[Rfam]
RNA sequence: GUCCUCGUCCCUGUCUCCCAACCCUCGUACCAGGGCCAUGCUCAGACCCUGGUGCAGGGAUGGGGGGCAGGGCCGUGGGG
Numbered sequence: 001g002u003c004c005u006c007g008u009c010c011c012u013g014u015c016u017c018c019c020a021a022c023c024c025u026c027g028u029a030c031c032a033g034g035g036c037c038a039u040g041c042u043c044a045g046a047c048c049c050u051g052g053u054g055c056a057g058g059g060a061u062g063g064g065g066g067g068c069a070g071g072g073c074c075g076u077g078g079g080g
Base pairs, nucleotide, nucleotide: 010071011070012069014067015066016065017064018063022058023057027055028054029053030052031051032050
Source information
A member of the RNA family "mir-150 microRNA precursor family" from Tupaia belangeri, 80 nucleotides long. Lineage of the source: Eukaryota > Euteleostomi > Eutheria > Euarchontoglires > Tupaia belangeri. Gene Ontology terms of the family: RISC complex and miRNA-mediated post-transcriptional gene silencing.